Annotation: Trypanosomatid snoRNA TB10Cs4H4: a 66-nucleotide RNA from Trypanosoma conorhini. The organism belongs to Trypanosoma, within Eukaryota. The family's consensus secondary structure was predicted with WAR. A reference for the family is Liang et al. (2005), "A genome-wide analysis of C/D and H/ACA-like small nucleolar RNAs in Trypanosoma brucei reveals a trypanosome-specific pattern of rRNA modification", RNA.

[Rfam]
RNA sequence: GAGGAGGCCCGUAGCCACGGUGCCUUGCCUGCUCGGUGGCGCACUGUGGGUGGUGGCUUUCCGAGA
Numbered sequence: 001g002a003g004g005a006g007g008c009c010c011g012u013a014g015c016c017a018c019g020g021u022g023c024c025u026u027g028c029c030u031g032c033u034c035g036g037u038g039g040c041g042c043a044c045u046g047u048g049g050g051u052g053g054u055g056g057c058u059u060u061c062c063g064a065g066a
Base pairs, nucleotide, nucleotide: 003062004061005060006058007057008056009055015049016048017047018046019045020044021043023041027040028039029038